[Rfam]
RNA sequence: CCGUGCUAGGUGGGGAGGUAGCGGUGCCCUGUACUCGCAAUCCGCUCUAGCGAGACUGAAUUCCACUCUGAGGUGUAUUUACUUUAGGGUCUGCCUUAAAUAAGUGGUGUUGACGUCUGGGUCCUACGCAACGAGAACUCACGAACCUUGUCAGGUCCGGAAGGAAGCAGCAAUAAGUGAGCCAUCUCGUGUGCCGUAGGGGUGCCUGGACCGAGCUAACUGUUUAAGUAACGCCUAGGGUAAUGCAUCGACGAGUGGUGCACGG
Numbered sequence: 001c002c003g004u005g006c007u008a009g010g011u012g013g014g015g016a017g018g019u020a021g022c023g024g025u026g027c028c029c030u031g032u033a034c035u036c037g038c039a040a041u042c043c044g045c046u047c048u049a050g051c052g053a054g055a056c057u058g059a060a061u062u063c064c065a066c067u068c069u070g071a072g073g074u075g076u077a078u079u080u081a082c083u084u085u086a087g088g089g090u091c092u093g094c095c096u097u098a099a100a101u102a103a104g105u106g107g108u109g110u111u112g113a114c115g116u117c118u119g120g121g122u123c124c125u126a127c128g129c130a131a132c133g134a135g136a137a138c139u140c141a142c143g144a145a146c147c148u149u150g151u152c153a154g155g156u157c158c159g160g161a162a163g164g165a166a167g168c169a170g171c172a173a174u175a176a177g178u179g180a181g182c183c184a185u186c187u188c189g190u191g192u193g194c195c196g197u198a199g200g201g202g203u204g205c206c207u208g209g210a211c212c213g214a215g216c217u218a219a220c221u222g223u224u225u226a227a228g229u230a231a232c233g234c235c236u237a238g239g240g241u242a243a244u245g246c247a248u249c250g251a252c253g254a255g256u257g258g259u260g261c262a263c264g265g
Stems, first nucleotide, its partner, number of pairs: 001265006009057003012030004017025001019023001034054005063258006072249005079243010092230002096227006104220002106217003115211008123200006129191002132189005138181005148173004156165003
RNA: Bacterial large signal recognition particle RNA
Organism: Gottfriedia endophytica